[Rfam]
Nucleotides: 298
Base pairs, nucleotide, nucleotide: 001044002043003042004023005022006021007020008019009018010017028041029040030039047295048294049293050292051291052290058285059284061282062281066275067274068273070271071270072269077268078267079266080265081264082263083262084261086260088258089257090256091255093253094252095251097249101248102247103246104245105244106243107242108241109237110236112235113234114233115232116231118228119227120226121225122224123223124222125221126220127166128165129164130163132161133160134159136157138155139154140153141152142151143150144149168172175218176217177216178215179214186209187208188207193202194201195200
Number, partner (000 for none) and nucleotide at each position: 001044g002043c003042c004023g005022g006021a007020g008019u009018c010017u011000g012000u013000g014000g015000c016000g017010a018009g019008g020007c021006u022005c023004u024000g025000u026000a027000a028041a029040c030039c031000g032000g033000c034000g035000a036000c037000u038000c039030g040029g041028u042003g043002g044001c045000u046000u047295g048294g049293a050292c051291u052290a053000u054000a055000g056000g057000a058285u059284g060000g061282c062281u063000u064000g065000a066275g067274g068273u069000u070271g071270g072269g073000a074000u075000c076000a077268c078267u079266g080265c081264u082263g083262c084261g085000g086260g087000a088258u089257c090256a091255c092000c093253c094252a095251u096000g097249u098000u099000g100000a101248u102247u103246g104245g105244g106243u107242g108241u109237c110236c111000g112235c113234a114233c115232u116231a117000a118228g119227c120226u121225u122224g123223g124222c125221a126220u127166c128165a129164a130163u131000a132161u133160g134159g135000c136157c137000a138155c139154c140153c141152u142151u143150g144149g145000g146000g147000a148000g149144c150143c151142a152141a153140g154139g155138g156000c157136g158000u159134c160133c161132a162000g163130g164129u165128u166127g167000a168172c169000u170000a171000a172168g173000g174000a175218g176217g177216u178215g179214u180000g181000a182000a183000c184000c185000g186209g187208g188207c189000c190000a191000g192000g193202g194201g195200g196000g197000a198000a199000a200195c201194c202193c203000a204000g205000c206000a207188g208187c209186c210000a211000a212000a213000a214179g215178c216177a217176c218175c219000c220126g221125u222124g223123u224122c225121g226120a227119g228118c229000a230000g231116u232115a233114g234113u235112g236110g237109g238000a239000u240000c241108a242107c243106g244105c245104c246103c247102g248101a249097g250000a251095g252094u253093g254000u255091g256090u257089g258088g259000c260086u261084c262083g263082u264081a265080g266079u267078a268077g269072c270071c271070c272000u273068a274067c275066c276000a277000a278000c279000a280000c281062a282061g283000g284059c285058a286000g287000a288000c289000u290052u291051a292050g293049u294048c295047c296000u297000u298000u